[Rfam]
RNA sequence: CUUCCAUCGGGAAGAGAAGUCCCUGUGGAGCUUUACUGCAGCUUGUUGUUGUGAUGCGGUUCUAAUUGCAGAGAGUAACUGGGAGCCGUUAUGCACAUGUUUUCGGGCAUGUGAUAGGCAAAAGUGUAACACCAGUCUCUUAGAGUUGCGUCUCUAACCUCUUUUAGAGGGACAUCGGCAGGUGGGCAGUUCGGCUGGGGCGGCACCCCUUUGAAAAGAUAUCGAAGGGGCUCUAAGGUUGGCUCAGGUGGGUCAGAAAUCCACCUUUGAGGGCAAGGCCAAAAGCCAGCCUGACUGGAUUCUGAACAACAAAGAAUUCAGCUGCGAAAGCAUGACCUAGCGAUCCUUCAAGUCCCCACUGUUGGGGGCUGGAGGUGACAGAAAAGUUACCCCAGGGGUAACAGGCUCGUCGCGGGUGAGAGCUCCAAUCGACCCCGCGGUUUGGUACCUCGAUGUCGGCUCUUCCCAUCCUGGUUCUGCAGCAGGAGCCAAGGGUGGGGCUGCUCGCCCAUUAAAGGGGAACGUGAGCUGGGUUUAGACCGUCGUGAGACAGGUCGGUCUCUAUCUGAUGGAAGCGGU
Numbered sequence: 001c002u003u004c005c006a007u008c009g010g011g012a013a014g015a016g017a018a019g020u021c022c023c024u025g026u027g028g029a030g031c032u033u034u035a036c037u038g039c040a041g042c043u044u045g046u047u048g049u050u051g052u053g054a055u056g057c058g059g060u061u062c063u064a065a066u067u068g069c070a071g072a073g074a075g076u077a078a079c080u081g082g083g084a085g086c087c088g089u090u091a092u093g094c095a096c097a098u099g100u101u102u103u104c105g106g107g108c109a110u111g112u113g114a115u116a117g118g119c120a121a122a123a124g125u126g127u128a129a130c131a132c133c134a135g136u137c138u139c140u141u142a143g144a145g146u147u148g149c150g151u152c153u154c155u156a157a158c159c160u161c162u163u164u165u166a167g168a169g170g171g172a173c174a175u176c177g178g179c180a181g182g183u184g185g186g187c188a189g190u191u192c193g194g195c196u197g198g199g200g201c202g203g204c205a206c207c208c209c210u211u212u213g214a215a216a217a218g219a220u221a222u223c224g225a226a227g228g229g230g231c232u233c234u235a236a237g238g239u240u241g242g243c244u245c246a247g248g249u250g251g252g253u254c255a256g257a258a259a260u261c262c263a264c265c266u267u268u269g270a271g272g273g274c275a276a277g278g279c280c281a282a283a284a285g286c287c288a289g290c291c292u293g294a295c296u297g298g299a300u301u302c303u304g305a306a307c308a309a310c311a312a313a314g315a316a317u318u319c320a321g322c323u324g325c326g327a328a329a330g331c332a333u334g335a336c337c338u339a340g341c342g343a344u345c346c347u348u349c350a351a352g353u354c355c356c357c358a359c360u361g362u363u364g365g366g367g368g369c370u371g372g373a374g375g376u377g378a379c380a381g382a383a384a385a386g387u388u389a390c391c392c393c394a395g396g397g398g399u400a401a402c403a404g405g406c407u408c409g410u411c412g413c414g415g416g417u418g419a420g421a422g423c424u425c426c427a428a429u430c431g432a433c434c435c436c437g438c439g440g441u442u443u444g445g446u447a448c449c450u451c452g453a454u455g456u457c458g459g460c461u462c463u464u465c466c467c468a469u470c471c472u473g474g475u476u477c478u479g480c481a482g483c484a485g486g487a488g489c490c491a492a493g494g495g496u497g498g499g500g501c502u503g504c505u506c507g508c509c510c511a512u513u514a515a516a517g518g519g520g521a522a523c524g525u526g527a528g529c530u531g532g533g534u535u536u537a538g539a540c541c542g543u544c545g546u547g548a549g550a551c552a553g554g555u556c557g558g559u560c561u562c563u564a565u566c567u568g569a570u571g572g573a574a575g576c577g578g579u
Base pairs, nucleotide, nucleotide: 001575002574003573004572005571006570007569008568010567011566012565014562015561022396023395024394025393027392028391029388030387031386032385033384035190036189037188038187042182043181044180045179046178047177048176051154053152054151055150056149057148058147059146060145061144062143063142064141065140068137078136079135080134081133082132085119086118087117097110098109099108100107101106158170159169160168161167193206194204195203196202207229208228209227210226211225212224232335233334238290239289240288241287242286243285244270245269247265248264249263250262251261252260271280272279295321296320297319298318299317300316301315302314303313323332325330346374347373348372349371350370352369354368355367356366357365405446406445407444409443410440411439412438413437414436415435416434420430421429457532458530459529460528461527462524463521464520465519466518467517470495471494474489475488476487477486478485498510499509500508501507538556539555540554541553542551543550544549
RNA: Archaeal large subunit ribosomal RNA, nucleotides 2169 to 2747